[Rfam]
RNA sequence: CGGGCUGGUCGGGCGACCGCGUUGCUCCCUCACGGGGGCACCGAGGAAGGUCCGGGCUCCGAAGGGCAGGGUGGUGGCUAACAGCCACCCGGGGCAACCCGCGGGAAAGUGCCACAGAGAACAGACCGCCGGGCCCUCACGGGUCAGGUAAGGGUGAAACGGUGGUGCAAGAGACCACCAGCGGCCGAGGUGACUCGGUCGGCUCGGCAAACCCCACCCGGAGCAAGGUCAAGAAGCCACCUCACGGUGGCGCGCACACGUUCGAGGGCGGCCCGCCCGAGUGUGCGGGUAGACCGCUGGAGGGUGUCGGCAACGGCACUCGUAGAUGGAUGGUCGCCCCCUGGUCACCAGGGACAGAACCCGGCCUACAGACCAGCCCGUCCG
Numbered sequence: 001c002g003g004g005c006u007g008g009u010c011g012g013g014c015g016a017c018c019g020c021g022u023u024g025c026u027c028c029c030u031c032a033c034g035g036g037g038g039c040a041c042c043g044a045g046g047a048a049g050g051u052c053c054g055g056g057c058u059c060c061g062a063a064g065g066g067c068a069g070g071g072u073g074g075u076g077g078c079u080a081a082c083a084g085c086c087a088c089c090c091g092g093g094g095c096a097a098c099c100c101g102c103g104g105g106a107a108a109g110u111g112c113c114a115c116a117g118a119g120a121a122c123a124g125a126c127c128g129c130c131g132g133g134c135c136c137u138c139a140c141g142g143g144u145c146a147g148g149u150a151a152g153g154g155u156g157a158a159a160c161g162g163u164g165g166u167g168c169a170a171g172a173g174a175c176c177a178c179c180a181g182c183g184g185c186c187g188a189g190g191u192g193a194c195u196c197g198g199u200c201g202g203c204u205c206g207g208c209a210a211a212c213c214c215c216a217c218c219c220g221g222a223g224c225a226a227g228g229u230c231a232a233g234a235a236g237c238c239a240c241c242u243c244a245c246g247g248u249g250g251c252g253c254g255c256a257c258a259c260g261u262u263c264g265a266g267g268g269c270g271g272c273c274c275g276c277c278c279g280a281g282u283g284u285g286c287g288g289g290u291a292g293a294c295c296g297c298u299g300g301a302g303g304g305u306g307u308c309g310g311c312a313a314c315g316g317c318a319c320u321c322g323u324a325g326a327u328g329g330a331u332g333g334u335c336g337c338c339c340c341c342u343g344g345u346c347a348c349c350a351g352g353g354a355c356a357g358a359a360c361c362c363g364g365c366c367u368a369c370a371g372a373c374c375a376g377c378c379c380g381u382c383c384g
Stems, first nucleotide, its partner, number of pairs: 001380010011369001012338007020043002023040006048367003052364005057223004064274004069219005074088005089103001090101004104214002109212002111208003126153002128149003132145005161179006181203001182201008227295004254286006266278004302321008
Dot-bracket structure: ((((((((((((((((((.((.((((((......)))))).))....[[[.[[[[[((((...[[[[.((((((((((.....)))))(((((....)))).)((...(((((............(((((.(((((....))))).)))..)).......((((((.......)))))).(((((((((....)))))))).)..)))..)))))))))))))...((((.......................((((((......((((.]]]]))))..)))))).....))))......((((((((....))))))))..........))))))).....................]]]]]]]].).))))))))))....
The record is a 384-nucleotide RNA sequence from Nocardioides sp. GY 10127, which matches "Bacterial RNase P class A" in Rfam. Rfam links the family to the GO terms dimeric ribonuclease P complex, ribonuclease P activity and tRNA processing. The source organism's lineage runs through Bacteria, Actinomycetota, Propionibacteriales, Nocardioidaceae and Nocardioides.